[Rfam]
RNA sequence: CCUGUGGACUGUCACAUCAAAUGUCAGUAGCCUUACGGCGAGGACAGACAGGGUGAAGCAGGAA
Numbered sequence: 001c002c003u004g005u006g007g008a009c010u011g012u013c014a015c016a017u018c019a020a021a022u023g024u025c026a027g028u029a030g031c032c033u034u035a036c037g038g039c040g041a042g043g044a045c046a047g048a049c050a051g052g053g054u055g056a057a058g059c060a061g062g063a064a
Base pairs, nucleotide, nucleotide: 001062002061003060004059005058009051010050011049012048013047022046023045024044030039031038032037
Rfam assigns this 64-nucleotide sequence to the family "RAGATH-18 RNA".
It is one of the family's seed sequences.